[Rfam]
Record summary:
This 107-nucleotide RNA sequence from Heyndrickxia coagulans belongs to the Rfam family "SAM riboswitch aptamer (S box leader)".

RNA sequence: AACUUAUCAAGAGAGGGGGAGGGACUGGCCCGAGGAAACCUCAGCAACAGAUUCUUUUUGGGAAUACUGUGCUAAUUCCAGCAAGCGUCAAGCUUGGAAGAUAAGUU
Numbered sequence: 001a002a003c004u005u006a007u008c009a010a011g012a013g014a015g016g017g018g019g020a021g022g023g024a025c026u027g028g029c030c031c032g033a034g035g036a037a038a039c040c041u042c043a044g045c046a047a048c049a050g051a052u053u054c055u056u057u058u059u060g061g062g063a064a065u066a067c068u069g070u071g072c073u074a075a076u077u078c079c080a081g082c083a084a085g086c087g088u089c090a091a092g093c094u095u096g097g098a099a100g101a102u103a104a105g106u107u
Stems, first nucleotide, its partner, number of pairs: 001107008013042004021031003025081004043073004048069002051065004077099001082096004

The family's consensus secondary structure is taken from published work. The organism belongs to Heyndrickxia coagulans, within Bacteria.